The record is an 80-nucleotide RNA sequence from Ziziphus jujuba, which matches "Small nucleolar RNA R160" in Rfam.
Rfam links the family to the GO terms RNA processing and nucleolus.
RNA sequence: AGCAAAAUGAUGAGAUUCUUUAGUCUGAAUUAACAUGUGGAAUCCCAUAUCAUAUUGGUCUUCAAAGUUCUCUGAUUGCU
Numbered sequence: 001a002g003c004a005a006a007a008u009g010a011u012g013a014g015a016u017u018c019u020u021u022a023g024u025c026u027g028a029a030u031u032a033a034c035a036u037g038u039g040g041a042a043u044c045c046c047a048u049a050u051c052a053u054a055u056u057g058g059u060c061u062u063c064a065a066a067g068u069u070c071u072c073u074g075a076u077u078g079c080u
Stems, first nucleotide, its partner, number of pairs: 001080005
It is annotated as a C/D-box small nucleolar RNA. The family has 9 seed sequences and 799 matches in Rfam 15.1. Rfam describes the family as follows. snoR160 is a C/D box small nucleolar RNA, which acts as a methylation guide for 25S ribosomal RNA in plants. snoR160 has been alternatively named snoZ270 in rice. The pairing is the family consensus, mapped onto this sequence.